[Rfam]
RNA sequence: UAGUGGGGUAGAGGCUAAGAACUUCGUCCUGUACGUGGGCACCUGGGGCGAAGGAAGCCAAUGGUGCGACCGUCUACCGUUUAA
Numbered sequence: 001u002a003g004u005g006g007g008g009u010a011g012a013g014g015c016u017a018a019g020a021a022c023u024u025c026g027u028c029c030u031g032u033a034c035g036u037g038g039g040c041a042c043c044u045g046g047g048g049c050g051a052a053g054g055a056a057g058c059c060a061a062u063g064g065u066g067c068g069a070c071c072g073u074c075u076a077c078c079g080u081u082u083a084a
Base pairs, nucleotide, nucleotide: 001084003082005080007078008077009076010075011074013059014058015057022053023052024051025050026049027048028047029046037071038070039067040066041065042064043063
c-di-GMP-II-GAG riboswitch aptamer: an 84-nucleotide sequence. Pairs were carried over by alignment from the consensus structure, which is taken from published work. The family is grouped with related families in Rfam's "c-di-GMP_II riboswitch clan". For this family Rfam cites "Bioinformatic analysis of riboswitch structures uncovers variant classes with altered ligand specificity" (Weinberg et al., Proc Natl Acad Sci U S A, 2017). The sequence is in the family's curated seed alignment.